[Rfam]
RNA sequence: AAAUACUAUUAGGGGAGCUGGAAUGGGCCGGCUGAGAAAAUGUACCAUCAUACAUUGACCCUGGAACCUGAUCCGGAUAAUGCCGGCGUAGGAAGCGAUUCUAGUUCAUCG
Numbered sequence: 001a002a003a004u005a006c007u008a009u010u011a012g013g014g015g016a017g018c019u020g021g022a023a024u025g026g027g028c029c030g031g032c033u034g035a036g037a038a039a040a041u042g043u044a045c046c047a048u049c050a051u052a053c054a055u056u057g058a059c060c061c062u063g064g065a066a067c068c069u070g071a072u073c074c075g076g077a078u079a080a081u082g083c084c085g086g087c088g089u090a091g092g093a094a095g096c097g098a099u100u101c102u103a104g105u106u107c108a109u110c111g
Stems, first nucleotide, its partner, number of pairs: 007098001010095001011062004017032005039056005067092004073086004
RNA: TPP riboswitch aptamer (THI element)